[Rfam]
RNA: ylbH leader
RNA sequence: AUAAAAAAGAGCUCGCGUUAUUACGCGAGCCAAAUCUGUAUCUUCCGAACGAUCAAUGAUGAAAGAUACGAAAUGGGAGAGGAGAAACCGGAGGAAGAACUUAUUGGGGAAAUGUAAGUCUUCUCCGCGU
Numbered sequence: 001a002u003a004a005a006a007a008a009g010a011g012c013u014c015g016c017g018u019u020a021u022u023a024c025g026c027g028a029g030c031c032a033a034a035u036c037u038g039u040a041u042c043u044u045c046c047g048a049a050c051g052a053u054c055a056a057u058g059a060u061g062a063a064a065g066a067u068a069c070g071a072a073a074u075g076g077g078a079g080a081g082g083a084g085a086a087a088c089c090g091g092a093g094g095a096a097g098a099a100c101u102u103a104u105u106g107g108g109g110a111a112a113u114g115u116a117a118g119u120c121u122u123c124u125c126c127g128c129g130u
Base pairs, nucleotide, nucleotide: 011030012029013028014027015026016025017024018023031077034074035073041066042065043064089127090126091125092124094123095122096121097120099119100118101117102116103115